[Rfam]
RNA sequence: AAAGUAGGCUAGGGGUGCUGUAACAAGCUGAGAGGAUUAAUAUCCAACCCUUUAACCUGAUGUGGUUAGUACCACCGUAGGGAAGCUCAAUUAAAAAUCA
Numbered sequence: 001a002a003a004g005u006a007g008g009c010u011a012g013g014g015g016u017g018c019u020g021u022a023a024c025a026a027g028c029u030g031a032g033a034g035g036a037u038u039a040a041u042a043u044c045c046a047a048c049c050c051u052u053u054a055a056c057c058u059g060a061u062g063u064g065g066u067u068a069g070u071a072c073c074a075c076c077g078u079a080g081g082g083a084a085g086c087u088c089a090a091u092u093a094a095a096a097a098u099c100a
Stems, first nucleotide, its partner, number of pairs: 007087004011051004017028003035044003056081004062075004
The family of this 100-nucleotide sequence from Allolucifera butyrica is "TPP riboswitch aptamer (THI element)". The base pairs follow the family's consensus structure, which is taken from published work. A search with the family's covariance model found it, with a score of 69 bits. Vitamin B(1) in its active form thiamin pyrophosphate (TPP) is an essential coenzyme that is synthesised by coupling of pyrimidine and thiazole moieties in bacteria. The previously detected thiamin-regulatory element, thi box was extended, resulting in a new, highly conserved RNA secondary structure, the THI element, which is widely distributed in eubacteria and also occurs in some archaea.